Shown here is a 158-nucleotide sequence from Amazona aestiva, a member of the family "U1 spliceosomal RNA". Pairs were carried over by alignment from the consensus structure, which is taken from published work. Clan: U1 clan. From the family's description: U1 is a small nuclear RNA (snRNA) component of the spliceosome (involved in pre-mRNA splicing). Its 5' end forms complementary base pairs with the 5' splice junction, thus defining the 5' donor site of an intron. There are significant differences in sequence and secondary structure between metazoan and yeast U1 snRNAs, the latter being much longer (568 nucleotides as compared to 164 nucleotides in human).
[Rfam]
RNA sequence: AUAUGGCAGGGGAGACACCAUGAUCAAGGAGGAGGCUUUCCCAGAGCGAGACUCAUUCCUUGCACUCUGGGUGUGCUGACCCCUGCAAUUUCCCCAAAUGCGGGAAACUCAACUGCAUAAUUUGUGGUAGUGGGGGACUGUUUUUUUUUUGUUUUUUU
Numbered sequence: 001a002u003a004u005g006g007c008a009g010g011g012g013a014g015a016c017a018c019c020a021u022g023a024u025c026a027a028g029g030a031g032g033a034g035g036c037u038u039u040c041c042c043a044g045a046g047c048g049a050g051a052c053u054c055a056u057u058c059c060u061u062g063c064a065c066u067c068u069g070g071g072u073g074u075g076c077u078g079a080c081c082c083c084u085g086c087a088a089u090u091u092c093c094c095c096a097a098a099u100g101c102g103g104g105a106a107a108c109u110c111a112a113c114u115g116c117a118u119a120a121u122u123u124g125u126g127g128u129a130g131u132g133g134g135g136g137a138c139u140g141u142u143u144u145u146u147u148u149u150u151g152u153u154u155u156u157u158u
Stems, first nucleotide, its partner, number of pairs: 006116004010042006018035002021032001043084002046081001048080001050077001052075001054073005088109001089107003093103002132157006140149001
It is annotated as a spliceosomal small nuclear RNA.